RNA sequence: CACCUUUUCACGCGCGUCACGAUCCCCUAUAUCUCCGGUGCCGGCGCAAGCCGGCUAUGGCGAUAAACGGUCAUCGUAAUAAACCUAUCGGACCCGGGGGCGGUACCCGGCGCCUCCACCCAAGGCCAUCGAAGCACCAGCAAGAUGGCUUUCGGCGGGGGCGAAAUAGGAUCGACGAGGGCUUAAAGGGUGUUCUUUCGCUCGGCAUGGUACCGCCGAUAUCGGACCAAACCUAUAGUUGCGAAUGACAACUAUGCUCCGGUUGCUAUCGCCGCGUAAUGCGGUGCUGGUACCGAAAUCAAAGUCCUUGCGGGUAGCACCGUAAGGCGGGGUUCGGAGGCACCUGGCAACAAGAAGCCUCCACU
Numbered sequence: 001c002a003c004c005u006u007u008u009c010a011c012g013c014g015c016g017u018c019a020c021g022a023u024c025c026c027c028u029a030u031a032u033c034u035c036c037g038g039u040g041c042c043g044g045c046g047c048a049a050g051c052c053g054g055c056u057a058u059g060g061c062g063a064u065a066a067a068c069g070g071u072c073a074u075c076g077u078a079a080u081a082a083a084c085c086u087a088u089c090g091g092a093c094c095c096g097g098g099g100g101c102g103g104u105a106c107c108c109g110g111c112g113c114c115u116c117c118a119c120c121c122a123a124g125g126c127c128a129u130c131g132a133a134g135c136a137c138c139a140g141c142a143a144g145a146u147g148g149c150u151u152u153c154g155g156c157g158g159g160g161g162c163g164a165a166a167u168a169g170g171a172u173c174g175a176c177g178a179g180g181g182c183u184u185a186a187a188g189g190g191u192g193u194u195c196u197u198u199c200g201c202u203c204g205g206c207a208u209g210g211u212a213c214c215g216c217c218g219a220u221a222u223c224g225g226a227c228c229a230a231a232c233c234u235a236u237a238g239u240u241g242c243g244a245a246u247g248a249c250a251a252c253u254a255u256g257c258u259c260c261g262g263u264u265g266c267u268a269u270c271g272c273c274g275c276g277u278a279a280u281g282c283g284g285u286g287c288u289g290g291u292a293c294c295g296a297a298a299u300c301a302a303a304g305u306c307c308u309u310g311c312g313g314g315u316a317g318c319a320c321c322g323u324a325a326g327g328c329g330g331g332g333u334u335c336g337g338a339g340g341c342a343c344c345u346g347g348c349a350a351c352a353a354g355a356a357g358c359c360u361c362c363a364c365u
Base pairs, nucleotide, nucleotide: 040055041054042053043052044051059202060201061200062199063198069195070194072192073191074190075189084181085180086179088178089177090176094110095109096108097107098106111163112162113161114160115159116158117157203218204217205216206215208229209228210227213225214224330345331344332343333342336362337361338360339359340358341357
The family of this 365-nucleotide sequence from Kaistia soli is "Alphaproteobacteria transfer-messenger RNA". It scores 305 bits against the family's covariance model. Bacterial tmRNA, also known as 10Sa RNA or SsrA, is named for its dual tRNA and mRNA-like properties. Its role is to liberate the mRNA from a stalled ribosome. To accomplish this part of the tmRNA is used as a reading frame that ends in a translation stop signal. The broken mRNA is replaced in the ribosome by the tmRNA and translation of the tmRNA leads to addition of a proteolysis tag to the incomplete protein enabling recognition by a protease. The literature on the family includes a 1996 paper in RNA by Williams and Bartel, "Phylogenetic analysis of tmRNA secondary structure". Its Rfam clan is "tRNA clan". The organism belongs to Kaistia soli, within Bacteria.